[Rfam]
RNA sequence: UGGGUUUUUUAGCACCACAAGCAUGGCACAGCUGCUCCGCUGUGUCUCUGACAUCAGAGCCAAGAACAAGUGGCUGUUUCUGUGUUCAGUGUUCAGAAGCCAGUGAGCACAAAAGACGGUUAGAGCCUGACAUAG
Numbered sequence: 001u002g003g004g005u006u007u008u009u010u011a012g013c014a015c016c017a018c019a020a021g022c023a024u025g026g027c028a029c030a031g032c033u034g035c036u037c038c039g040c041u042g043u044g045u046c047u048c049u050g051a052c053a054u055c056a057g058a059g060c061c062a063a064g065a066a067c068a069a070g071u072g073g074c075u076g077u078u079u080c081u082g083u084g085u086u087c088a089g090u091g092u093u094c095a096g097a098a099g100c101c102a103g104u105g106a107g108c109a110c111a112a113a114a115g116a117c118g119g120u121u122a123g124a125g126c127c128u129g130a131c132a133u134a135g
Stems, first nucleotide, its partner, number of pairs: 001056003017049001019047001072127003080119003085114002090109006
Dot-bracket structure: (((.............(.(...........................).)....)))...............(((.....(((..((...((((((........))))))...))..))).....)))........
The family of this 135-nucleotide RNA from Neotoma lepida is "Small nucleolar RNA SNORA43".
Its Rfam clan is "SNORA17 clan".
The family's RNA type in Rfam is H/ACA-box small nucleolar RNA.
ACA43 is a member of the H/ACA class of snoRNA that guide the sites of modification of uridines to pseudouridines.
NCBI's taxonomy places the organism under Eukaryota, Opisthokonta, Mammalia, Euarchontoglires, Neotoma.
A search with the family's covariance model found it, with a score of 86 bits.